[Rfam]
RNA sequence: CGGGCGGCAUUCGUUUUUUGGAGCUGCACCGUUAGGAUGGUCGGCAUUUUUCCAAUAAUUUGCUAGUGACAAUGAUUGGGAUGCGCAUUCUGCUCUGAGCCGCCAAGGACCGAGACAGAAGG
Numbered sequence: 001c002g003g004g005c006g007g008c009a010u011u012c013g014u015u016u017u018u019u020g021g022a023g024c025u026g027c028a029c030c031g032u033u034a035g036g037a038u039g040g041u042c043g044g045c046a047u048u049u050u051u052c053c054a055a056u057a058a059u060u061u062g063c064u065a066g067u068g069a070c071a072a073u074g075a076u077u078g079g080g081a082u083g084c085g086c087a088u089u090c091u092g093c094u095c096u097g098a099g100c101c102g103c104c105a106a107g108g109a110c111c112g113a114g115a116c117a118g119a120a121g122g
Stems, first nucleotide, its partner, number of pairs: 001031003004027005010022004090118003093114003097110001100108002
Dot-bracket structure: ((((((((.((((.....))))))))).)))..........................................................((((((.(..((.....)).).))).)))....
The family of this 122-nucleotide sequence from Paenibacillus sp. MY03 is "pan motif". Taxonomically the source falls in Paenibacillus (Bacteria, Bacillati, Caryophanales, Paenibacillaceae). It is annotated as a cis-regulatory element.